[Rfam]
RNA sequence: CCUGGGACUUGCGUCCCAGGCUGUUGCAUAUCAUCGCUUCGCGACU
Numbered sequence: 001c002c003u004g005g006g007a008c009u010u011g012c013g014u015c016c017c018a019g020g021c022u023g024u025u026g027c028a029u030a031u032c033a034u035c036g037c038u039u040c041g042c043g044a045c046u
Base pairs, nucleotide, nucleotide: 001020002019003018004017005016006015007014008013034044035043036042037041
A member of the RNA family "Acido-Lenti-1 RNA" from Rosistilla oblonga, 46 nucleotides long. Lineage of the source: Bacteria > Planctomycetota > Pirellulales > Pirellulaceae > Rosistilla. It is annotated as a small RNA. A search with the family's covariance model found it, with a score of 43 bits.